[Rfam]
Notes:
A member of the RNA family "Guanidine-II riboswitch aptamer (mini-ykkC)" from Rhodopseudomonas palustris, 49 nucleotides long. Pairs were carried over by alignment from the consensus structure, which is taken from published work. The organism belongs to Rhodopseudomonas palustris, within Bacteria. Rfam links the family to the GO term regulation of gene expression.

RNA sequence: CGGCCGGGACGACCCGGCCGAACAGGGAGCAUGAGCCGGGACGACCCGG
Numbered sequence: 001c002g003g004c005c006g007g008g009a010c011g012a013c014c015c016g017g018c019c020g021a022a023c024a025g026g027g028a029g030c031a032u033g034a035g036c037c038g039g040g041a042c043g044a045c046c047c048g049g
Base pairs, nucleotide, nucleotide: 001020002019003018004017005016006015007014008013036049037048038047039046040045